[Rfam]
RNA sequence: AUGUAGUGUAGCAUGUCCGUUUGGUGAAUUACUCUGAUGAAUAUUUUAUAUUUAAAUACUUUUGGGUAACGGUGUGUUACAAACA
Numbered sequence: 001a002u003g004u005a006g007u008g009u010a011g012c013a014u015g016u017c018c019g020u021u022u023g024g025u026g027a028a029u030u031a032c033u034c035u036g037a038u039g040a041a042u043a044u045u046u047u048a049u050a051u052u053u054a055a056a057u058a059c060u061u062u063u064g065g066g067u068a069a070c071g072g073u074g075u076g077u078u079a080c081a082a083a084c085a
Stems, first nucleotide, its partner, number of pairs: 002085003007081008017072005
The family of this 85-nucleotide RNA sequence from Medicago truncatula is "MIR2617 microRNA precursor family". The match comes from Rfam's covariance-model search (90 bits). Taxonomically the source falls in Medicago (Eukaryota, Euphyllophyta, Gunneridae, Pentapetalae). Gene Ontology terms of the family: miRNA-mediated post-transcriptional gene silencing and RISC complex.